[Rfam]
Shown here is an 87-nucleotide RNA from Myotis brandtii, a member of the family "mir-9195 microRNA precursor family". The source organism's lineage runs through Eukaryota, Metazoa, Eumetazoa, Chiroptera and Myotis. Rfam links the family to the GO terms miRNA-mediated post-transcriptional gene silencing and RISC complex.
RNA sequence: AGAGGCCCUCUGUGGCCACAGUGGAAUGCUUGCCUUGUCGCCGUGGCAACAAAGCAAACAUUCCGCCAGGCCACUCACGCUGCCCGC
Numbered sequence: 001a002g003a004g005g006c007c008c009u010c011u012g013u014g015g016c017c018a019c020a021g022u023g024g025a026a027u028g029c030u031u032g033c034c035u036u037g038u039c040g041c042c043g044u045g046g047c048a049a050c051a052a053a054g055c056a057a058a059c060a061u062u063c064c065g066c067c068a069g070g071c072c073a074c075u076c077a078c079g080c081u082g083c084c085c086g087c
Base pairs, nucleotide, nucleotide: 004084005083006082012074013073014072015071016070017069021066022065023064024063025062026061027060028059030057031056032055033054037050038049040047041046
Dot-bracket structure: ...(((.....((((((...((((((((.((((...((.((....)).))...)))).))))))))..)))))).......)))...